[Rfam]
RNA: SAM riboswitch aptamer (S box leader)
Organism: Thermoanaerobacterium sp. RBIITD
RNA sequence: CUCUUAUCAAGAGAGGUGGAGGGAAGAGCCCUGUGAAGCCCGGCAACCUGUCAAAUGACAAGGUGCUAAUUCUCGCAGAAGUUUUCUUCUGAAAGAUGAGGG
Numbered sequence: 001c002u003c004u005u006a007u008c009a010a011g012a013g014a015g016g017u018g019g020a021g022g023g024a025a026g027a028g029c030c031c032u033g034u035g036a037a038g039c040c041c042g043g044c045a046a047c048c049u050g051u052c053a054a055a056u057g058a059c060a061a062g063g064u065g066c067u068a069a070u071u072c073u074c075g076c077a078g079a080a081g082u083u084u085u086c087u088u089c090u091g092a093a094a095g096a097u098g099a100g101g102g
Base pairs, nucleotide, nucleotide: 001102002101003100004099005098006097007096008095013041015040016039017038021031022030023029026074027073028072042067043066044065045064047063048062049060050059051058052057071094076091077090078089079088080087081086